A member of the RNA family "Alphaproteobacterial ar14" from Roseibium suaedae, 129 nucleotides long. The pairing is the family consensus, mapped onto this sequence. The family has 118 seed sequences and 784 matches in Rfam 15.1.
[Rfam]
RNA sequence: AGAUCGCGCUCCACCGAGCCACCUCCUCCCAGGCUCCGGAGCGCGUAAAACGGACAAGGCAUCCUCCUCCCAGUCUUGUCCGCGGAAACGUCGCCCGUCAGCACCUCCUCCCGCUGACGGGCGAGCGUU
Number, nucleotide and partner (000 for none) at each position: 001a000002g000003a000004u000005c000006g000007c045008g044009c043010u000011c000012c000013a000014c039015c038016g036017a035018g034019c000020c000021a000022c000023c000024u000025c000026c000027u000028c000029c000030c000031a000032g000033g000034c018035u017036c016037c000038g015039g014040a000041g000042c000043g009044c008045g007046u000047a000048a000049a000050a000051c082052g081053g080054a079055c078056a077057a076058g075059g074060c073061a000062u000063c000064c000065u000066c000067c000068u000069c000070c000071c000072a000073g060074u059075c058076u057077u056078g055079u054080c053081c052082g051083c000084g000085g000086a000087a000088a000089c000090g000091u124092c123093g122094c121095c120096c119097g118098u117099c116100a000101g114102c113103a000104c000105c000106u000107c000108c000109u000110c000111c000112c000113g102114c101115u000116g099117a098118c097119g096120g095121g094122c093123g092124a091125g000126c000127g000128u000129u000